[Rfam]
RNA sequence: UCGGGAUUUCAGCCUCCCGACUCUUCACAGAUAGACGGUGUCCCGUCCAAGCGCUG
Numbered sequence: 001u002c003g004g005g006a007u008u009u010c011a012g013c014c015u016c017c018c019g020a021c022u023c024u025u026c027a028c029a030g031a032u033a034g035a036c037g038g039u040g041u042c043c044c045g046u047c048c049a050a051g052c053g054c055u056g
Stems, first nucleotide, its partner, number of pairs: 001020006010056004034047005